This 96-nucleotide RNA from Lignipirellula cremea belongs to the Rfam family "Selenocysteine transfer RNA". Rfam 15.1 lists 4,211 matches to the family in 3,344 species. The organism belongs to Lignipirellula, within Bacteria. The family's consensus secondary structure is taken from published work. It scores 71 bits against the family's covariance model.
RNA sequence: GGAAGCGCUUGCUUGCCUGGUGGCGGCCGCGGUCUUCAAAACCGUUGGGACGUGCGUCAAACGUGGGUCCGGUGGGUUCGAUUCCCAUGCGCUUCC
Numbered sequence: 001g002g003a004a005g006c007g008c009u010u011g012c013u014u015g016c017c018u019g020g021u022g023g024c025g026g027c028c029g030c031g032g033u034c035u036u037c038a039a040a041a042c043c044g045u046u047g048g049g050a051c052g053u054g055c056g057u058c059a060a061a062c063g064u065g066g067g068u069c070c071g072g073u074g075g076g077u078u079c080g081a082u083u084c085c086c087a088u089g090c091g092c093u094u095c096c
Base pairs, nucleotide, nucleotide: 001096002095003094004093005092006091007090008089013026014025015024016023017022029045030044031043032042033041048070049069050068051067073087074086075085076084